[Rfam]
RNA sequence: CUCUUAUUGAGAGAGGCAGAGGGACUAGGCCCGUCGAAGCCCGGCAACCGUCAGUUUGGAACAUCCAAGGUGAAAAGGUGCUAAUUCCUACAGGUGAUUACCUGAAAGAUAAGAG
Numbered sequence: 001c002u003c004u005u006a007u008u009g010a011g012a013g014a015g016g017c018a019g020a021g022g023g024a025c026u027a028g029g030c031c032c033g034u035c036g037a038a039g040c041c042c043g044g045c046a047a048c049c050g051u052c053a054g055u056u057u058g059g060a061a062c063a064u065c066c067a068a069g070g071u072g073a074a075a076a077g078g079u080g081c082u083a084a085u086u087c088c089u090a091c092a093g094g095u096g097a098u099u100a101c102c103u104g105a106a107a108g109a110u111a112a113g114a115g
Stems, first nucleotide, its partner, number of pairs: 001115008013042001015041003021032003026090004043082004048078002051073003086107001091104005
Dot-bracket structure: ((((((((....(.(((...(((..[[[[)))......))))((((.((.(((.................)))...))))))...(]]]](((((....)))))..)))))))))
Shown here is a 115-nucleotide RNA sequence from Gracilibacillus ureilyticus, a member of the family "SAM riboswitch aptamer (S box leader)". A search with the family's covariance model found it, with a score of 84 bits. The source organism's lineage runs through Bacteria, Bacillati, Bacillota, Bacillaceae and Gracilibacillus.